[Rfam]
RNA sequence: UUGCAUGCAGUGGCUUUGCUGCCACAACAUGUCCACCCUUUCCCAAUGAUGAGAUCGUGGAUGUAGAAACAGCAUGCUAUAGUAACAUGGAGUUAACAGGGCCAGCAGUCUCUCAAGAGCAGACUGCAUUGGUAGUAUAGCACUCCUAUAAUU
Numbered sequence: 001u002u003g004c005a006u007g008c009a010g011u012g013g014c015u016u017u018g019c020u021g022c023c024a025c026a027a028c029a030u031g032u033c034c035a036c037c038c039u040u041u042c043c044c045a046a047u048g049a050u051g052a053g054a055u056c057g058u059g060g061a062u063g064u065a066g067a068a069a070c071a072g073c074a075u076g077c078u079a080u081a082g083u084a085a086c087a088u089g090g091a092g093u094u095a096a097c098a099g100g101g102c103c104a105g106c107a108g109u110c111u112c113u114c115a116a117g118a119g120c121a122g123a124c125u126g127c128a129u130u131g132g133u134a135g136u137a138u139a140g141c142a143c144u145c146c147u148a149u150a151a152u153u
Base pairs, nucleotide, nucleotide: 003077004076005075006074007073008072089146090145091144092143101133102132105129106126107125108124109123110122111121112119
Source information:
Shown here is a 153-nucleotide sequence from Clarias magur, a member of the family "Small nucleolar RNA U109". Its family is annotated with nucleolus and RNA processing in the Gene Ontology. It is annotated as an H/ACA-box small nucleolar RNA.